[Rfam]
RNA sequence: GAAGACCCUGUUGAGCUUGACUCUAGUUUGACAUUGUGAAAAGACAUAGGGGGUGUAGAAUAGGUGGGAGAGCAAUCGCCGGUGAAAUACCACUACCCUUAUCGUUUUUUUACUUAUUCAAUGAAGCGGAACUGGGUUUUAUCGCCCAACUUCUGGCGUUAAGGUCAUUUACUGGCCGAUCCGGGUUGAAGACAUUGUCAGGUGGGGAGUUUGGCUGGGGCGGCACAUCUGUUAAACCAUAACGCAGGUGUCCUAAGGGGGACUCAUGGAGAACAGAAAUCUCCAGUAGAACAAAAGGGUAAAAGUCCCCUUGAUUUUGAUUUUCAGUGUGAAUACAAACCAUGAAAGUGUGGCCUAUCGAUCCUUUAGUCCCUCGAAAUUUGAGGCUAGAGGUGCCAGAAAAGUUACCACAGGGAUAACUGGCUUGUGGCAGCCAAGCGUUCUUAGCGACGUUGCUUUUUGAUCCUUCGAUGU
Dot-bracket structure: ......((((.(((((((.((((...(((((((..(((((((((((((((((..........(((((..((....))............))))).))))))).))))))))))...(((((.....((((....((.(.....)))................(((((.....)))))..))))..))))).....)))))))....))))..((((.....))).)((((((...........))))))..((....((((((((.((((((.......))))))...))((......))....))))))....(((..((((.......))))..))).(((....))).))..........((((((..((((.......)))))))))).........)))))..))))))........(.(.(.((((((...((.......))...))))))...)).)..........
Numbered sequence: 001g002a003a004g005a006c007c008c009u010g011u012u013g014a015g016c017u018u019g020a021c022u023c024u025a026g027u028u029u030g031a032c033a034u035u036g037u038g039a040a041a042a043g044a045c046a047u048a049g050g051g052g053g054u055g056u057a058g059a060a061u062a063g064g065u066g067g068g069a070g071a072g073c074a075a076u077c078g079c080c081g082g083u084g085a086a087a088u089a090c091c092a093c094u095a096c097c098c099u100u101a102u103c104g105u106u107u108u109u110u111u112a113c114u115u116a117u118u119c120a121a122u123g124a125a126g127c128g129g130a131a132c133u134g135g136g137u138u139u140u141a142u143c144g145c146c147c148a149a150c151u152u153c154u155g156g157c158g159u160u161a162a163g164g165u166c167a168u169u170u171a172c173u174g175g176c177c178g179a180u181c182c183g184g185g186u187u188g189a190a191g192a193c194a195u196u197g198u199c200a201g202g203u204g205g206g207g208a209g210u211u212u213g214g215c216u217g218g219g220g221c222g223g224c225a226c227a228u229c230u231g232u233u234a235a236a237c238c239a240u241a242a243c244g245c246a247g248g249u250g251u252c253c254u255a256a257g258g259g260g261g262a263c264u265c266a267u268g269g270a271g272a273a274c275a276g277a278a279a280u281c282u283c284c285a286g287u288a289g290a291a292c293a294a295a296a297g298g299g300u301a302a303a304a305g306u307c308c309c310c311u312u313g314a315u316u317u318u319g320a321u322u323u324u325c326a327g328u329g330u331g332a333a334u335a336c337a338a339a340c341c342a343u344g345a346a347a348g349u350g351u352g353g354c355c356u357a358u359c360g361a362u363c364c365u366u367u368a369g370u371c372c373c374u375c376g377a378a379a380u381u382u383g384a385g386g387c388u389a390g391a392g393g394u395g396c397c398a399g400a401a402a403a404g405u406u407a408c409c410a411c412a413g414g415g416a417u418a419a420c421u422g423g424c425u426u427g428u429g430g431c432a433g434c435c436a437a438g439c440g441u442u443c444u445u446a447g448c449g450a451c452g453u454u455g456c457u458u459u460u461u462g463a464u465c466c467u468u469c470g471a472u473g474u
Stems, first nucleotide, its partner, number of pairs: 007414004012410002014406005020210004027202007036113010046102007063094005070077002117190005127183004135146002138144001163177005213226001214224003227249006252353002258310006264290002267285006291300002315339003320334004341350003364392006372386004423464001425462001427461001429457006438448002
The family of this 474-nucleotide part of an RNA from Cladophialophora carrionii is "Eukaryotic large subunit ribosomal RNA". The base pairs follow the family's consensus structure, which is taken from published work. Its family is annotated with ribosome and structural constituent of ribosome in the Gene Ontology. The source organism's lineage runs through Eukaryota, Dikarya, saccharomyceta, Eurotiomycetes and Cladophialophora.